RNA sequence: CUAAACGUGGUUCGUAACCAUCCCACGAUAAAAAACUAAGGGAGA
Number, nucleotide and partner (000 for none) at each position: 001c000002u000003a000004a000005a000006c027007g026008u025009g024010g023011u000012u000013c000014g000015u038016a037017a000018c000019c000020a000021u000022c000023c010024c009025a008026c007027g006028a000029u000030a000031a000032a000033a000034a000035a000036c000037u016038a015039a000040g000041g000042g000043a000044g000045a000
Shown here is a 45-nucleotide RNA from Bacillus sp. FJAT-27986, a member of the family "PreQ1 (pre queuosine) riboswitch aptamer".
The base pairs follow the family's consensus structure.
Rfam describes the family as follows. This family is a bacterial riboswitch that binds to the metabolite preQ1, an intermediate in the biosynthesis of the modified nucleoside queuosine from GTP. One example of this riboswitch is located in the leader of the Bacillus subtilis ykvJKLM (queCDEF) operon which encodes four genes necessary for queuosine production.
The literature on the family includes a 2004 paper in J Biol Chem by Reader et al., "Identification of four genes necessary for biosynthesis of the modified nucleoside queuosine".
It scores 56 bits against the family's covariance model.